[Rfam]
This 89-nucleotide RNA sequence from Papaver nudicaule belongs to the Rfam family "Small nucleolar RNA R16". It is annotated as a C/D-box small nucleolar RNA.
RNA sequence: UAAGGCAAAUGACGACUAAUUCUUAUCCCACACACUGAAUUUCAAUUGUGUUGAACACAAACAUCUCAACUUUAUUAUCUGAUGCCUUG
Dot-bracket structure: ..(((((...........................................................................)))))..
For this family Rfam cites "Purified box C/D snoRNPs are able to reproduce site-specific 2'-O-methylation of target RNA in vitro" (Galardi et al., Mol Cell Biol, 2002). A search with the family's covariance model found it, with a score of 62 bits.